Shown here is a 139-nucleotide sequence from Panicum miliaceum, a member of the family "Small nucleolar RNA Z247". The match comes from Rfam's covariance-model search (53 bits). On this family, see Chen et al., Nucleic Acids Res 2003: "The high diversity of snoRNAs in plants: identification and comparative study of 120 snoRNA genes from Oryza sativa". The base pairs follow the family's consensus structure, which was predicted with PFOLD. Rfam classes the family as a C/D-box small nucleolar RNA.
[Rfam]
RNA sequence: ACCAUUGAUAAUGAUGAGAUGAUUCAUUACAUCCUAACAGGUCUUGAUUUUGAAUACAACAUGUUUGUCACUUCAAUGCUUGGCCAGGUUGGAUCAAUCUCCUUGAGCGAUCUAUACUCCCAACUGUUGUCCUACAACA
Numbered sequence: 001a002c003c004a005u006u007g008a009u010a011a012u013g014a015u016g017a018g019a020u021g022a023u024u025c026a027u028u029a030c031a032u033c034c035u036a037a038c039a040g041g042u043c044u045u046g047a048u049u050u051u052g053a054a055u056a057c058a059a060c061a062u063g064u065u066u067g068u069c070a071c072u073u074c075a076a077u078g079c080u081u082g083g084c085c086a087g088g089u090u091g092g093a094u095c096a097a098u099c100u101c102c103u104u105g106a107g108c109g110a111u112c113u114a115u116a117c118u119c120c121c122a123a124c125u126g127u128u129g130u131c132c133u134a135c136a137a138c139a
Stems, first nucleotide, its partner, number of pairs: 005137003088108003092104002